[Rfam]
RNA sequence: UAAAAUGUGCUUAACAAAGCAUAUAUAAAUUCAUAAAAUGGAUGAAUGUUUCUACCAACUGCUGUAUUAAUUGAUUAUAUAUUUUCCUUGAGGAAAG
Numbered sequence: 001u002a003a004a005a006u007g008u009g010c011u012u013a014a015c016a017a018a019g020c021a022u023a024u025a026u027a028a029a030u031u032c033a034u035a036a037a038a039u040g041g042a043u044g045a046a047u048g049u050u051u052c053u054a055c056c057a058a059c060u061g062c063u064g065u066a067u068u069a070a071u072u073g074a075u076u077a078u079a080u081a082u083u084u085u086c087c088u089u090g091a092g093g094a095a096a097g
Base pairs, nucleotide, nucleotide: 018083019082021080022079023078024077025076029047030046031045032044033043034042056073057072058071060069061068
Dot-bracket structure: .................((.(((((...((((((.......))))))........(((.((......)).)))..))))).))..............
The record is a 97-nucleotide sequence from Romboutsia ilealis, which matches "Purine riboswitch aptamer" in Rfam. A search with the family's covariance model found it, with a score of 38 bits. The source organism's lineage runs through Bacteria, Bacillati, Clostridia, Peptostreptococcales and Romboutsia.